[Rfam]
Overview:
Rfam assigns this 191-nucleotide RNA from Paenibacillus psychroresistens to the family "c-di-AMP riboswitch aptamer (ydaO/yuaA leader)". The organism belongs to Paenibacillus, within Bacteria.

RNA sequence: GAAUGCUUAAUGCUGAAUUUCCUAAAUGGAAAAUGGGGGAACCAAACGAGUGCAAUUCUUGGUGUGAGAGCCAAGAUAGUACUCAGGGGUGAAUCACAUUACAAAAUGAACAUGACAUUUUGUAAUGAGUAGGGCGACUCUCACCGCCCGAAUCCGACAGCUAACCUCGUAAGCGAUGUAUGUGAGGAAGG
Numbered sequence: 001g002a003a004u005g006c007u008u009a010a011u012g013c014u015g016a017a018u019u020u021c022c023u024a025a026a027u028g029g030a031a032a033a034u035g036g037g038g039g040a041a042c043c044a045a046a047c048g049a050g051u052g053c054a055a056u057u058c059u060u061g062g063u064g065u066g067a068g069a070g071c072c073a074a075g076a077u078a079g080u081a082c083u084c085a086g087g088g089g090u091g092a093a094u095c096a097c098a099u100u101a102c103a104a105a106a107u108g109a110a111c112a113u114g115a116c117a118u119u120u121u122g123u124a125a126u127g128a129g130u131a132g133g134g135c136g137a138c139u140c141u142c143a144c145c146g147c148c149c150g151a152a153u154c155c156g157a158c159a160g161c162u163a164a165c166c167u168c169g170u171a172a173g174c175g176a177u178g179u180a181u182g183u184g185a186g187g188a189a190g191g
Stems, first nucleotide, its partner, number of pairs: 011175004018032003033170006043086001087155003095129001097127012132149004